[Rfam]
RNA sequence: GAAAACAAGCAGAAGCAUCCCGCUUCUCGCCUAAGUUGACAAGGGUCCUUGGGCUGAUAGGAAAUGUUCAAGUUUUAAAAAGACAUUGGCAGCGGGAGUAUUCGAUUACUUCCGUUGCUUUUUUGCUUU
Numbered sequence: 001g002a003a004a005a006c007a008a009g010c011a012g013a014a015g016c017a018u019c020c021c022g023c024u025u026c027u028c029g030c031c032u033a034a035g036u037u038g039a040c041a042a043g044g045g046u047c048c049u050u051g052g053g054c055u056g057a058u059a060g061g062a063a064a065u066g067u068u069c070a071a072g073u074u075u076u077a078a079a080a081a082g083a084c085a086u087u088g089g090c091a092g093c094g095g096g097a098g099u100a101u102u103c104g105a106u107u108a109c110u111u112c113c114g115u116u117g118c119u120u121u122u123u124u125g126c127u128u129u
Stems, first nucleotide, its partner, number of pairs: 011027006029054003038047003091116010